[Rfam]
Shown here is a 415-nucleotide RNA sequence from Gluconacetobacter diazotrophicus, a member of the family "Bacterial RNase P class A". Rfam links the family to the GO terms dimeric ribonuclease P complex, tRNA processing and ribonuclease P activity. By type it is a ribozyme.
RNA sequence: CCAGAUGGUCGGGCGGCCGCUGUCGCGUGGAUUUCCCACGCGGUGGAGGAAAGUCCGGGCUCCACGGAGGAACGGUGCCGGCUAACGGCCGGCGGGGGUGACCCCAGGGAAAGUGCCACAGAAAACAGACCGCCCCCACGGCAUUCCGGUUCGCCGGAGAUGGUGCGGGUAAGGGUGAAACGGUGCGGUAAGAGCGCACCGCGCGUGCGGUAACGCAGGCGGCAGGGCAAACCCCACCGGGAGCAAGACCGAAUAGGAACGGCAGACGGACCGCCUCGCGCGGGGUCGUCGGGGGUCCCUCCGCCCCGUCGUUCGGGUUGGUCGCGUGAGGCGCGCCGCAAGGCGCGUCCCAGAGGAAUGGUCGCCCCCCUUCAUCGAAGGUGGACAGAACCCGGCUUACAGACCAUCUGGCCGU
Numbered sequence: 001c002c003a004g005a006u007g008g009u010c011g012g013g014c015g016g017c018c019g020c021u022g023u024c025g026c027g028u029g030g031a032u033u034u035c036c037c038a039c040g041c042g043g044u045g046g047a048g049g050a051a052a053g054u055c056c057g058g059g060c061u062c063c064a065c066g067g068a069g070g071a072a073c074g075g076u077g078c079c080g081g082c083u084a085a086c087g088g089c090c091g092g093c094g095g096g097g098g099u100g101a102c103c104c105c106a107g108g109g110a111a112a113g114u115g116c117c118a119c120a121g122a123a124a125a126c127a128g129a130c131c132g133c134c135c136c137c138a139c140g141g142c143a144u145u146c147c148g149g150u151u152c153g154c155c156g157g158a159g160a161u162g163g164u165g166c167g168g169g170u171a172a173g174g175g176u177g178a179a180a181c182g183g184u185g186c187g188g189u190a191a192g193a194g195c196g197c198a199c200c201g202c203g204c205g206u207g208c209g210g211u212a213a214c215g216c217a218g219g220c221g222g223c224a225g226g227g228c229a230a231a232c233c234c235c236a237c238c239g240g241g242a243g244c245a246a247g248a249c250c251g252a253a254u255a256g257g258a259a260c261g262g263c264a265g266a267c268g269g270a271c272c273g274c275c276u277c278g279c280g281c282g283g284g285g286u287c288g289u290c291g292g293g294g295g296u297c298c299c300u301c302c303g304c305c306c307c308g309u310c311g312u313u314c315g316g317g318u319u320g321g322u323c324g325c326g327u328g329a330g331g332c333g334c335g336c337c338g339c340a341a342g343g344c345g346c347g348u349c350c351c352a353g354a355g356g357a358a359u360g361g362u363c364g365c366c367c368c369c370c371u372u373c374a375u376c377g378a379a380g381g382u383g384g385a386c387a388g389a390a391c392c393c394g395g396c397u398u399a400c401a402g403a404c405c406a407u408c409u410g411g412c413c414g415u
Stems, first nucleotide, its partner, number of pairs: 001411010011400001012366007020046009051398003055395005060243004069301002073239005078092005093107001094105004108234002113232002115228003130174002132170004137165003182200006201223001202221003206217004247323004257314006293307003297303001330349008